RNA sequence: UUCACUAUUUUGGGAGAAUCGGACUUACCGAUGCCGAAGGAGCAACCACCCCGGAAACUCUCAGGCAAAUGGACCAAUUUAGUGCA
Numbered sequence: 001u002u003c004a005c006u007a008u009u010u011u012g013g014g015a016g017a018a019u020c021g022g023a024c025u026u027a028c029c030g031a032u033g034c035c036g037a038a039g040g041a042g043c044a045a046c047c048a049c050c051c052c053g054g055a056a057a058c059u060c061u062c063a064g065g066c067a068a069a070u071g072g073a074c075c076a077a078u079u080u081a082g083u084g085c086a
Stems, first nucleotide, its partner, number of pairs: 006081002010077004019031004033066003036062002040060003046054002
The record is an 86-nucleotide sequence from Ahrensia marina, which matches "Glycine riboswitch aptamer" in Rfam. It scores 60 bits against the family's covariance model. From the family's description: This family represents the bacterial glycine riboswitch. Glycine riboswitches usually consist of two metabolite-binding aptamers domains with similar structures in tandem. The aptamers cooperatively bind glycine to regulate the expression of downstream genes. Lineage of the source: Bacteria > Pseudomonadota > Alphaproteobacteria > Hyphomicrobiales > Ahrensia. The base pairs follow the family's consensus structure.